[Rfam]
RNA sequence: UAGUCAUCAAGAGAGGUUAAGGAAUAGGCCCAAUGACACCUCAGCAACCUACAAUAAUGUAAGGUGCUAACUCCUACGAUCUCUGACUGGGAGAUGAUUA
Numbered sequence: 001u002a003g004u005c006a007u008c009a010a011g012a013g014a015g016g017u018u019a020a021g022g023a024a025u026a027g028g029c030c031c032a033a034u035g036a037c038a039c040c041u042c043a044g045c046a047a048c049c050u051a052c053a054a055u056a057a058u059g060u061a062a063g064g065u066g067c068u069a070a071c072u073c074c075u076a077c078g079a080u081c082u083c084u085g086a087c088u089g090g091g092a093g094a095u096g097a098u099u100a
Stems, first nucleotide, its partner, number of pairs: 001100008013042005021031002025076004043068004048064002050061004072092001077089002080086002
Dot-bracket structure: ((((((((....(((((...((..[[[[.))......)))))((((.((((((....)))).))))))...(]]]]((.((...)).))..)))))))))